[Rfam]
RNA sequence: GGGGGCGACCUUGGUUUCGACGGGGGUUGCGAAGCAGAUGCGGGCAUACCGGGGUCUCAGAUUCCCGUAAAACACUGAAUUCAAAUAGUCGCAAACGACGAAACUUACGCUUUAGCCGCUUAAGGCUAGCCGUUGCAGCAGUCGGUCAAUGGGCUGUGUGGUGAAAGCCACCGCAACGUCAUCUUACAUUGACUGGUUUCCAGCCGGGUUACUUGGCAGGAAAUAAGACUUAAGGUAACUGGUUUCCAAAAGGCCUGUUGGUCGGCAUGAUGGAAAUAAGAUUUUCAAAUAGACACAACUAAGUAUGUAGAACGCUUUGUAGAGGACUUUCGGACGGGGGUUCGAUUCCCCCCGCCUCCACCA
Numbered sequence: 001g002g003g004g005g006c007g008a009c010c011u012u013g014g015u016u017u018c019g020a021c022g023g024g025g026g027u028u029g030c031g032a033a034g035c036a037g038a039u040g041c042g043g044g045c046a047u048a049c050c051g052g053g054g055u056c057u058c059a060g061a062u063u064c065c066c067g068u069a070a071a072a073c074a075c076u077g078a079a080u081u082c083a084a085a086u087a088g089u090c091g092c093a094a095a096c097g098a099c100g101a102a103a104c105u106u107a108c109g110c111u112u113u114a115g116c117c118g119c120u121u122a123a124g125g126c127u128a129g130c131c132g133u134u135g136c137a138g139c140a141g142u143c144g145g146u147c148a149a150u151g152g153g154c155u156g157u158g159u160g161g162u163g164a165a166a167g168c169c170a171c172c173g174c175a176a177c178g179u180c181a182u183c184u185u186a187c188a189u190u191g192a193c194u195g196g197u198u199u200c201c202a203g204c205c206g207g208g209u210u211a212c213u214u215g216g217c218a219g220g221a222a223a224u225a226a227g228a229c230u231u232a233a234g235g236u237a238a239c240u241g242g243u244u245u246c247c248a249a250a251a252g253g254c255c256u257g258u259u260g261g262u263c264g265g266c267a268u269g270a271u272g273g274a275a276a277u278a279a280g281a282u283u284u285u286c287a288a289a290u291a292g293a294c295a296c297a298a299c300u301a302a303g304u305a306u307g308u309a310g311a312a313c314g315c316u317u318u319g320u321a322g323a324g325g326a327c328u329u330u331c332g333g334a335c336g337g338g339g340g341u342u343c344g345a346u347u348c349c350c351c352c353c354g355c356c357u358c359c360a361c362c363a
Stems, first nucleotide, its partner, number of pairs: 001359007021332008034320005040315003045307005050067005057078004112129006131178006139156004145193007196224006203217002207240006242277007251268001253266003257299004261294003336352005